[Rfam]
RNA sequence: CAAUAGCAUCAAGAAUCUUUAAAGAUACCAACCGAGCAAAAGAGCCACGGUGGUUGAAGGAUGUGGUCAGUAUAGACAAAAAAAUGUACUCCC
Numbered sequence: 001c002a003a004u005a006g007c008a009u010c011a012a013g014a015a016u017c018u019u020u021a022a023a024g025a026u027a028c029c030a031a032c033c034g035a036g037c038a039a040a041a042g043a044g045c046c047a048c049g050g051u052g053g054u055u056g057a058a059g060g061a062u063g064u065g066g067u068c069a070g071u072a073u074a075g076a077c078a079a080a081a082a083a084a085u086g087u088a089c090u091c092c093c
Base pairs, nucleotide, nucleotide: 006064007063008062009061010060015026017024018023027054028053029052032050033049034048036045037044041087043085066077067076068075

Shown here is a 93-nucleotide sequence from Sediminitomix flava, a member of the family "SAM-I/IV (S-adenosyl methionine) riboswitch aptamer". It scores 66 bits against the family's covariance model. Lineage of the source: Bacteria > Pseudomonadati > Cytophagia > Cytophagales > Sediminitomix. Rfam 15.1 lists 567 matches to the family in 508 species. Rfam links the family to the GO terms regulation of gene expression and S-adenosylmethionine metabolic process.